[Rfam]
RNA sequence: GGAGUCGGCCAAGGCAAUCGCUGCUUGCUUAUGCAAGGGGAGGAAAGUCCGGGCUCCAAAGGGCAGGGUGCCAGGUAACGCCUGGGCGGCGAAAGCCGACGACUAGUGCAACAGAGAGUAAACCGCCGAUGACUCGCUUGCGAGCACAGGUAAGGGUGAAAGGGUGCGGUAAGAGCGCACCGCGCAACUGGUAACAGUUUGUGGCACGGUAAACUCCACUCGGAGCAAGACCAAAUAGGGAUCCUCGUUGUGGCCCGCAUCGGAUCCGGGUAGGUUGCUAGAGGCUGCAGGUGACUGUAGUCGUAGAGGAAUGAUUGCCCACGACAAAACCCGGCUUACUGGCCGACUCCAACU
Number, nucleotide and partner (000 for none) at each position: 001g350002g349003a348004g347005u346006c345007g344008g343009c342010c341011a000012a000013g319014g318015c317016a316017a315018u314019c313020g000021c040022u039023g000024c037025u036026u035027g034028c033029u000030u000031a000032u000033g028034c027035a026036a025037g024038g000039g022040g021041a000042g000043g000044a000045a337046a336047g335048u000049c334050c333051g332052g331053g330054c225055u224056c223057c222058a000059a000060a000061g256062g255063g254064c253065a000066g221067g220068g219069u218070g217071c085072c084073a083074g082075g081076u000077a000078a000079c000080g000081c075082c074083u073084g072085g071086g100087c098088g097089g096090c095091g000092a000093a000094a000095g090096c089097c088098g087099a000100c086101g216102a215103c000104u000105a000106g214107u213108g210109c209110a000111a000112c000113a000114g000115a000116g000117a000118g000119u000120a000121a000122a000123c155124c154125g151126c150127c149128g000129a000130u146131g145132a000133c000134u000135c000136g000137c000138u000139u000140g000141c000142g000143a000144g000145c131146a130147c000148a000149g127150g126151u125152a000153a000154g124155g123156g000157u000158g000159a000160a000161a000162g000163g181164g180165u179166g178167c177168g176169g000170u000171a000172a000173g000174a000175g000176c168177g167178c166179a165180c164181c163182g205183c203184g202185c201186a200187a199188c197189u196190g195191g000192u000193a000194a000195c190196a189197g188198u000199u187200u186201g185202u184203g183204g000205c182206a000207c000208g000209g109210u108211a000212a000213a107214c106215u102216c101217c070218a069219c068220u067221c066222g057223g056224a055225g054226c000227a000228a000229g276230a275231c274232c273233a000234a000235a000236u000237a000238g000239g267240g266241a265242u264243c263244c262245u000246c000247g261248u000249u259250g258251u257252g000253g064254c063255c062256c061257g251258c250259a249260u000261c247262g244263g243264a242265u241266c240267c239268g000269g000270g000271u000272a000273g232274g231275u230276u229277g000278c000279u000280a000281g000282a000283g302284g301285c300286u299287g298288c297289a296290g295291g000292u000293g000294a000295c290296u289297g288298u287299a286300g285301u284302c283303g000304u000305a000306g000307a000308g000309g000310a000311a000312u000313g019314a018315u017316u016317g015318c014319c013320c000321a000322c000323g000324a000325c000326a000327a000328a000329a000330c053331c052332c051333g050334g049335c047336u046337u045338a000339c000340u000341g010342g009343c008344c007345g006346a005347c004348u003349c002350c001351a000352a000353c000354u000

Rfam assigns this 354-nucleotide RNA sequence from Lysobacter sp. N42 to the family "Bacterial RNase P class A".
The organism belongs to Lysobacter, within Bacteria.
The base pairs follow the family's consensus structure, which is taken from published work.